[Rfam]
Nucleotides: 075
Stems, first nucleotide, its partner, number of pairs: 014026004031071003038065001047056003
Number, partner (000 for none) and nucleotide at each position: 001000c002000u003000u004000g005000a006000u007000g008000g009000a010000g011000c012000c013000c014026a015025g016024c017023c018000a019000c020000a021000g022000c023017g024016g025015c026014u027000g028000g029000u030000c031071c032070u033069c034000g035000u036000c037000g038065u039000g040000g041000u042000u043000g044000c045000g046000c047056c048055c049054g050000u051000a052000g053000g054049u055048g056047g057000c058000g059000a060000g061000c062000a063000g064000g065038g066000c067000c068000u069033g070032g071031g072000c073000c074000u075000c